[Rfam]
A member of the RNA family "FuFi-1 RNA" from Tepidibacillus decaturensis, 199 nucleotides long. NCBI's taxonomy places the organism under Bacteria, Bacillati, Bacillota, Caryophanales, Tepidibacillus. The match comes from Rfam's covariance-model search (97 bits). The base pairs follow the family's consensus structure, which is taken from published work.

RNA sequence: GCUAUGAGCUAUGAGGGGUAAUAAAAAAGCUGAGCCACAACAGCUUAAGUCAUAGCCUCACCCAUAGAAGCCAAGAAUGCACCUCUUGGUGAUUUUAGAACCCAGCAACCAUACUGGAUAAUUCUAAAUAUCUGCAAGUGAGUUAAGGUUCCCAAACGUGGAACAAACCCAAGAAAAGGUGCAUUUUCCUUGGGUUUUG
Numbered sequence: 001g002c003u004a005u006g007a008g009c010u011a012u013g014a015g016g017g018g019u020a021a022u023a024a025a026a027a028a029g030c031u032g033a034g035c036c037a038c039a040a041c042a043g044c045u046u047a048a049g050u051c052a053u054a055g056c057c058u059c060a061c062c063c064a065u066a067g068a069a070g071c072c073a074a075g076a077a078u079g080c081a082c083c084u085c086u087u088g089g090u091g092a093u094u095u096u097a098g099a100a101c102c103c104a105g106c107a108a109c110c111a112u113a114c115u116g117g118a119u120a121a122u123u124c125u126a127a128a129u130a131u132c133u134g135c136a137a138g139u140g141a142g143u144u145a146a147g148g149u150u151c152c153c154a155a156a157c158g159u160g161g162a163a164c165a166a167a168c169c170c171a172a173g174a175a176a177a178g179g180u181g182c183a184u185u186u187u188c189c190u191u192g193g194g195u196u197u198u199g
Base pairs, nucleotide, nucleotide: 001056002055003054004053005052006051007050028045029044030043031042032041035161036160037159038158057142058141059140060139061138070090071089072088073087074086075085076084077184078183079182080181081180082179083178091132092131093130095128096127098125165197166196167195168194169193170192171191172190173189175187176186177185